Background
Rfam assigns this 104-nucleotide sequence from Trema orientale to the family "Small nucleolar RNA Z107/R87". Rfam links the family to the GO terms RNA processing and nucleolus. On this family, see Barneche et al., J Mol Biol 2001: "Identification of 66 box C/D snoRNAs in Arabidopsis thaliana: extensive gene duplications generated multiple isoforms predicting new ribosomal RNA 2'-O-methylation sites".
[Rfam]
RNA sequence: GGUCGCAGUGACGACUCCAUAAAAUUCAAGCUCAACAGACCGGAAUGCAGGUUUCUCUUCACUGAGAAUUUUGCGUGUCGAUAACCCCGCUGAACUGAGCGAUC
Numbered sequence: 001g002g003u004c005g006c007a008g009u010g011a012c013g014a015c016u017c018c019a020u021a022a023a024a025u026u027c028a029a030g031c032u033c034a035a036c037a038g039a040c041c042g043g044a045a046u047g048c049a050g051g052u053u054u055c056u057c058u059u060c061a062c063u064g065a066g067a068a069u070u071u072u073g074c075g076u077g078u079c080g081a082u083a084a085c086c087c088c089g090c091u092g093a094a095c096u097g098a099g100c101g102a103u104c
Stems, first nucleotide, its partner, number of pairs: 001104006